[Rfam]
RNA sequence: AGAUAACUCAGAGUCCCCCGACGGGGGAUAUGAGUAACGGCUGGUUGGCACAGCCCGGAGUCUUCCUGUUCGACCGCGAGAGCGGACGGUUCCCACCGAGAGAACAGGGAGACUGUAGACCCUAAUAUCCCAACGCUCGGGAAUCCUCGCCCUUCAGGGCGGGGA
Numbered sequence: 001a002g003a004u005a006a007c008u009c010a011g012a013g014u015c016c017c018c019c020g021a022c023g024g025g026g027g028a029u030a031u032g033a034g035u036a037a038c039g040g041c042u043g044g045u046u047g048g049c050a051c052a053g054c055c056c057g058g059a060g061u062c063u064u065c066c067u068g069u070u071c072g073a074c075c076g077c078g079a080g081a082g083c084g085g086a087c088g089g090u091u092c093c094c095a096c097c098g099a100g101a102g103a104a105c106a107g108g109g110a111g112a113c114u115g116u117a118g119a120c121c122c123u124a125a126u127a128u129c130c131c132a133a134c135g136c137u138c139g140g141g142a143a144u145c146c147u148c149g150c151c152c153u154u155c156a157g158g159g160c161g162g163g164g165a
Stems, first nucleotide, its partner, number of pairs: 004037001007034004013029007039055005059114005065108007084097002088093001128142004133137001144165009
RNA: Sense overlapping transcript RNA 0042 (sot)
Organism: Halomicrobium mukohataei